[Rfam]
RNA sequence: GACGAGAUAUUGUCCUGUCACAGCAGUACUGUACUCAGGAUACUGGUGGGACGGGACAUAACCUCGCU
Numbered sequence: 001g002a003c004g005a006g007a008u009a010u011u012g013u014c015c016u017g018u019c020a021c022a023g024c025a026g027u028a029c030u031g032u033a034c035u036c037a038g039g040a041u042a043c044u045g046g047u048g049g050g051a052c053g054g055g056a057c058a059u060a061a062c063c064u065c066g067c068u
Stems, first nucleotide, its partner, number of pairs: 003066003011058007021048002024045005
Rfam assigns this 68-nucleotide RNA sequence from Cloeon dipterum to the family "mir-1000 microRNA precursor family". The family has 13 seed sequences and 152 matches in Rfam 15.1. It scores 62 bits against the family's covariance model. Taxonomically the source falls in Cloeon (Eukaryota, Protostomia, Panarthropoda, Mandibulata).